Notes:
The record is a 278-nucleotide RNA from Cynoglossus semilaevis, which matches "Small Cajal body specific RNA 6" in Rfam. Rfam 15.1 lists 1,309 matches to the family in 627 species. About the family: U88 is small Cajal body specific RNA (scaRNA). scaRNAs are a novel class of small nuclear RNAs which localise to the Cajal bodies. U88 is found associated with both fibrillarin and Gar1p and co-localises with coilin in Cajal bodies. It is annotated as a small Cajal body RNA. Taxonomically the source falls in Cynoglossus (Eukaryota, Craniata, Eurypterygia, Percomorphaceae).

[Rfam]
RNA sequence: GGUCAGUGAUGUUUUGUAAAAGGUCUGAUUCAGCUCCUCCUCCUCAGCCAUCAUCUUGGCUCCCAGCAGUCUCUCUCUCUUACUCCCAUCAUGCACCAGUUCAGCACUGAUGGUUUAAGAGGCUGCUGACACAUAGGGAGUUACAUCACAGUGUGAGUCUAUACAGAGACCCUAUAGAUUCAGAGUGAUGUGGGACCUCCAACAGGGCCAAUAGGUGUGGAGCUUGAGGCGGCUGUGGGGGAGGAGCCUAGAUGUGAUCUCACCCUGUUACUGAGGCC
Numbered sequence: 001g002g003u004c005a006g007u008g009a010u011g012u013u014u015u016g017u018a019a020a021a022g023g024u025c026u027g028a029u030u031c032a033g034c035u036c037c038u039c040c041u042c043c044u045c046a047g048c049c050a051u052c053a054u055c056u057u058g059g060c061u062c063c064c065a066g067c068a069g070u071c072u073c074u075c076u077c078u079c080u081u082a083c084u085c086c087c088a089u090c091a092u093g094c095a096c097c098a099g100u101u102c103a104g105c106a107c108u109g110a111u112g113g114u115u116u117a118a119g120a121g122g123c124u125g126c127u128g129a130c131a132c133a134u135a136g137g138g139a140g141u142u143a144c145a146u147c148a149c150a151g152u153g154u155g156a157g158u159c160u161a162u163a164c165a166g167a168g169a170c171c172c173u174a175u176a177g178a179u180u181c182a183g184a185g186u187g188a189u190g191u192g193g194g195a196c197c198u199c200c201a202a203c204a205g206g207g208c209c210a211a212u213a214g215g216u217g218u219g220g221a222g223c224u225u226g227a228g229g230c231g232g233c234u235g236u237g238g239g240g241g242a243g244g245a246g247c248c249u250a251g252a253u254g255u256g257a258u259c260u261c262a263c264c265c266u267g268u269u270a271c272u273g274a275g276g277c278c
Base pairs, nucleotide, nucleotide: 001278002277003276004275038257039256042238043237045235046234047233048232049231060222061221062220063219064128065127066126067125068124069123070122086113087112088111089110090109091108094104136200138199139198140197142195154182155181156180157179158178159177160176161175162174163173